A member of the RNA family "c-di-GMP-I riboswitch aptamer" from Methyloglobulus morosus, 78 nucleotides long.
RNA sequence: AACAAAAAAAGCUAAGCCUAUCGGAAGGUAGGUACAGAAAGUCGCGGAUCCAGAAUGAUGGAAAGCCGGACUGCCGAG
Numbered sequence: 001a002a003c004a005a006a007a008a009a010a011g012c013u014a015a016g017c018c019u020a021u022c023g024g025a026a027g028g029u030a031g032g033u034a035c036a037g038a039a040a041g042u043c044g045c046g047g048a049u050c051c052a053g054a055a056u057g058a059u060g061g062a063a064a065g066c067c068g069g070a071c072u073g074c075c076g077a078g
Stems, first nucleotide, its partner, number of pairs: 012037002017032006040072004045068003049062004
Lineage of the source: Bacteria > Pseudomonadati > Pseudomonadota > Methylococcaceae > Methyloglobulus morosus.